RNA sequence: CCGUUUCAAUGUUCAUCGCCUGAUCAGCGGUGCCCAGAGCAGCGAAACGGACACAAAAUUACAGUCAACCCACUGGGAGCGGUUGGCCAUUUAAGAAGUGAGGAUUCAUUCUUAUGGCCAAUUAUUAUGGGAAGUCCUGCGUGGAUUCUCA
Numbered sequence: 001c002c003g004u005u006u007c008a009a010u011g012u013u014c015a016u017c018g019c020c021u022g023a024u025c026a027g028c029g030g031u032g033c034c035c036a037g038a039g040c041a042g043c044g045a046a047a048c049g050g051a052c053a054c055a056a057a058a059u060u061a062c063a064g065u066c067a068a069c070c071c072a073c074u075g076g077g078a079g080c081g082g083u084u085g086g087c088c089a090u091u092u093a094a095g096a097a098g099u100g101a102g103g104a105u106u107c108a109u110u111c112u113u114a115u116g117g118c119c120a121a122u123u124a125u126u127a128u129g130g131g132a133a134g135u136c137c138u139g140c141g142u143g144g145a146u147u148c149u150c151a
Stems, first nucleotide, its partner, number of pairs: 001050005007044001010041004014032005033077005063147004068142002084120005097110005
Rfam assigns this 151-nucleotide sequence to the family "DUF2800 RNA".
By type it is a cis-regulatory element.